RNA sequence: CUCGGCCUGUGGUACAGACCUAUUUAUGCACGACAUCCUGAGUAAAGAAGUUUCAAUCCAAGCGUUAUCGUUGAUAGCCCUUCUGUGACGAAUUUCCUUUUGAGUGCCUCAUAAGUAAUGGCUGAAAGCCGGCUAUAUAUCGCCUUCGGCGUCACAUUUUUAAUAUUAAGGAAUUUAUCAUGACUAUGAUGAAAGGUCAGGUUAAGUGGUUCAACGAGUCUAAAGGCUUUGGCUUCAUUACUCCGGCUGACGGCAGCAAAGACGUGUUCGUACACUUCUCUGCCAUCCAGGACACCGGCUUCAAGACCCUGGCUGAAGGCCAGAACGUACAGUUCUCCAUCGAGAACGGUGCUAAAGGUCCGUCAGCGGCUAACGUUACCGCUAUCUAAUCUCCCUUGCUGCGCAGCACGCUUAUCAUGAGCUGACGCGCCGUUAACGAGAUUUAAAAAAACCCGCCUCGGCGGGUUUUUUGUU
Numbered sequence: 001c002u003c004g005g006c007c008u009g010u011g012g013u014a015c016a017g018a019c020c021u022a023u024u025u026a027u028g029c030a031c032g033a034c035a036u037c038c039u040g041a042g043u044a045a046a047g048a049a050g051u052u053u054c055a056a057u058c059c060a061a062g063c064g065u066u067a068u069c070g071u072u073g074a075u076a077g078c079c080c081u082u083c084u085g086u087g088a089c090g091a092a093u094u095u096c097c098u099u100u101u102g103a104g105u106g107c108c109u110c111a112u113a114a115g116u117a118a119u120g121g122c123u124g125a126a127a128g129c130c131g132g133c134u135a136u137a138u139a140u141c142g143c144c145u146u147c148g149g150c151g152u153c154a155c156a157u158u159u160u161u162a163a164u165a166u167u168a169a170g171g172a173a174u175u176u177a178u179c180a181u182g183a184c185u186a187u188g189a190u191g192a193a194a195g196g197u198c199a200g201g202u203u204a205a206g207u208g209g210u211u212c213a214a215c216g217a218g219u220c221u222a223a224a225g226g227c228u229u230u231g232g233c234u235u236c237a238u239u240a241c242u243c244c245g246g247c248u249g250a251c252g253g254c255a256g257c258a259a260a261g262a263c264g265u266g267u268u269c270g271u272a273c274a275c276u277u278c279u280c281u282g283c284c285a286u287c288c289a290g291g292a293c294a295c296c297g298g299c300u301u302c303a304a305g306a307c308c309c310u311g312g313c314u315g316a317a318g319g320c321c322a323g324a325a326c327g328u329a330c331a332g333u334u335c336u337c338c339a340u341c342g343a344g345a346a347c348g349g350u351g352c353u354a355a356a357g358g359u360c361c362g363u364c365a366g367c368g369g370c371u372a373a374c375g376u377u378a379c380c381g382c383u384a385u386c387u388a389a390u391c392u393c394c395c396u397u398g399c400u401g402c403g404c405a406g407c408a409c410g411c412u413u414a415u416c417a418u419g420a421g422c423u424g425a426c427g428c429g430c431c432g433u434u435a436a437c438g439a440g441a442u443u444u445a446a447a448a449a450a451a452c453c454c455g456c457c458u459c460g461g462c463g464g465g466u467u468u469u470u471u472g473u474u
Stems, first nucleotide, its partner, number of pairs: 004020002007017003027245002030242001033239001047235001049234004053226002057224001064221001069216006076210001078209002083182001086180003096171004106129002109126001142153001144151001184196002248342003252338002261269002274328002277325001279324004283319002287312005296305001347362003351359003365383005371378001390441003446471011

Shown here is a 474-nucleotide RNA sequence from Chimaeribacter arupi, a member of the family "cspA thermoregulator". Pairs were carried over by alignment from the consensus structure, which is taken from published work. It is annotated as an RNA thermoregulator. The match comes from Rfam's covariance-model search (216 bits). The organism belongs to Chimaeribacter, within Bacteria. A reference for the family is Giuliodori et al. (2010), "The cspA mRNA is a thermosensor that modulates translation of the cold-shock protein CspA", Mol Cell.